[Rfam]
RNA sequence: UUGGGUAAAAUCAACGUAGGACCUACACUUUGAAAAUGAAACCCACAUGAGGUGGUGGGACAUGCAUUGAUUUUAUAA
Numbered sequence: 001u002u003g004g005g006u007a008a009a010a011u012c013a014a015c016g017u018a019g020g021a022c023c024u025a026c027a028c029u030u031u032g033a034a035a036a037u038g039a040a041a042c043c044c045a046c047a048u049g050a051g052g053u054g055g056u057g058g059g060a061c062a063u064g065c066a067u068u069g070a071u072u073u074u075a076u077a078a
Stems, first nucleotide, its partner, number of pairs: 001078003006075009016065003023058003026054007
Rfam assigns this 78-nucleotide RNA sequence from Medicago truncatula to the family "MIR5269 microRNA precursor family". Its family is annotated with miRNA-mediated post-transcriptional gene silencing and RISC complex in the Gene Ontology. It scores 66 bits against the family's covariance model. The base pairs follow the family's consensus structure, which was predicted with RNAalifold.